[Rfam]
RNA: mir-315 microRNA precursor family
RNA sequence: GUUCCUUAUGUUUUUGAUUGUUGCUCAGAAAGCCGUGACACUCGACUGGCUUUCGGGCAAUAAUCAUAAUCACGCAGGAAC
Numbered sequence: 001g002u003u004c005c006u007u008a009u010g011u012u013u014u015u016g017a018u019u020g021u022u023g024c025u026c027a028g029a030a031a032g033c034c035g036u037g038a039c040a041c042u043c044g045a046c047u048g049g050c051u052u053u054c055g056g057g058c059a060a061u062a063a064u065c066a067u068a069a070u071c072a073c074g075c076a077g078g079a080a081c
Base pairs, nucleotide, nucleotide: 001081002080003079004078005077006076012069013068015066016065017064018063020061021060022059023058024057025056026055028054029053030052031051032050033049034048